[Rfam]
The record is a 59-nucleotide RNA sequence from Phascolarctos cinereus, which matches "mir-7386 microRNA precursor family" in Rfam. Gene Ontology terms of the family: miRNA-mediated post-transcriptional gene silencing and RISC complex.

RNA sequence: GCUUGGAUAAGGACCACUAUUUUGUGAAUAUUACCAAAGUAAACACCUUAUCCUUGGGG
Numbered sequence: 001g002c003u004u005g006g007a008u009a010a011g012g013a014c015c016a017c018u019a020u021u022u023u024g025u026g027a028a029u030a031u032u033a034c035c036a037a038a039g040u041a042a043a044c045a046c047c048u049u050a051u052c053c054u055u056g057g058g059g
Base pairs, nucleotide, nucleotide: 002056005053006052007051008050009049010048011047012046018041019040020039021038022037023036024035026034
Taxonomically the source falls in Phascolarctos (Eukaryota, Opisthokonta, Teleostomi, Amniota). It scores 65 bits against the family's covariance model.